[Rfam]
RNA sequence: CGAUCCGAGGAGCGCUGCAACCCGCCAGGGCCAGGCUCGGAUCCGCCACAGACGAUGUUUCCAACGGCGCUCACUCGAU
Numbered sequence: 001c002g003a004u005c006c007g008a009g010g011a012g013c014g015c016u017g018c019a020a021c022c023c024g025c026c027a028g029g030g031c032c033a034g035g036c037u038c039g040g041a042u043c044c045g046c047c048a049c050a051g052a053c054g055a056u057g058u059u060u061c062c063a064a065c066g067g068c069g070c071u072c073a074c075u076c077g078a079u
Stems, first nucleotide, its partner, number of pairs: 002043007021030003

Source information
A member of the RNA family "SAH (S-adenosyl-L-homocysteine) riboswitch aptamer" from endosymbiont of unidentified scaly snail isolate Monju, 79 nucleotides long. The match comes from Rfam's covariance-model search (63 bits). The family has 52 seed sequences and 1,354 matches in Rfam 15.1.